Rfam assigns this 62-nucleotide RNA from Aeromicrobium sp. PE09-221 to the family "Actino-pnp RNA". A search with the family's covariance model found it, with a score of 66 bits. It is annotated as a cis-regulatory element.
RNA sequence: CUCGGUCCUCGGUAGUGGCCCGCGGAGCCCCUGGGUUCCGAGGGCCUCGAUCGAAGACCGGC
Numbered sequence: 001c002u003c004g005g006u007c008c009u010c011g012g013u014a015g016u017g018g019c020c021c022g023c024g025g026a027g028c029c030c031c032u033g034g035g036u037u038c039c040g041a042g043g044g045c046c047u048c049g050a051u052c053g054a055a056g057a058c059c060g061g062c
Stems, first nucleotide, its partner, number of pairs: 002061006009054005017046005023040007
NCBI's taxonomy places the organism under Bacteria, Actinomycetota, Propionibacteriales, Nocardioidaceae, Aeromicrobium.